[Rfam]
RNA sequence: UGUUUAUCCAGAGUCGGGGGAGAGAGUCAGCUCGCAGAUCCCGCACCAACCUGCUUUAUGGCAAGGUGGUCCUGCUGACAUCGAUGAGGA
Numbered sequence: 001u002g003u004u005u006a007u008c009c010a011g012a013g014u015c016g017g018g019g020g021a022g023a024g025a026g027u028c029a030g031c032u033c034g035c036a037g038a039u040c041c042c043g044c045a046c047c048a049a050c051c052u053g054c055u056u057u058a059u060g061g062c063a064a065g066g067u068g069g070u071c072c073u074g075c076u077g078a079c080a081u082c083g084a085u086g087a088g089g090a
Stems, first nucleotide, its partner, number of pairs: 001090001003088006013044001015043004022033003028077003045070004050066002052063004074082001
The family of this 90-nucleotide RNA sequence from Dethiosulfovibrio peptidovorans is "SAM riboswitch aptamer (S box leader)". The base pairs follow the family's consensus structure, which is taken from published work. Rfam describes the family as follows. The SAM riboswitch is found upstream of a number of genes which code for proteins involved in methionine or cysteine biosynthesis in Gram-positive bacteria. The SAM riboswitch acts at the level of transcription termination control. The predicted structure consists of a complex stem-loop region followed by a single stem loop terminator region. An alternative and mutually exclusive form involves bases in the 3' segment of helix 1 with those in the 5' region of helix 5 to form a structure termed the anti-terminator form. It scores 45 bits against the family's covariance model. The organism belongs to Dethiosulfovibrio peptidovorans, within Bacteria.